Shown here is a 94-nucleotide sequence from Durio zibethinus, a member of the family "mir-393 microRNA precursor family".
Pairs were carried over by alignment from the consensus structure.
On this family, see Kruszka et al., J Plant Physiol 2012: "Role of microRNAs and other sRNAs of plants in their changing environments".

[Rfam]
RNA sequence: AAAGGAGGAAUCCAAAGGGAUAGCAUGAUCCAAAAUUGCGGGGGGAAAAGGGUAGAAAAUAAAGGAUCAAUGCGAUCCCUUUGGAUCCCUCCUC
Numbered sequence: 001a002a003a004g005g006a007g008g009a010a011u012c013c014a015a016a017g018g019g020a021u022a023g024c025a026u027g028a029u030c031c032a033a034a035a036u037u038g039c040g041g042g043g044g045g046a047a048a049a050g051g052g053u054a055g056a057a058a059a060u061a062a063a064g065g066a067u068c069a070a071u072g073c074g075a076u077c078c079c080u081u082u083g084g085a086u087c088c089c090u091c092c093u094c
Stems, first nucleotide, its partner, number of pairs: 003093004008088001010086012023073003026069006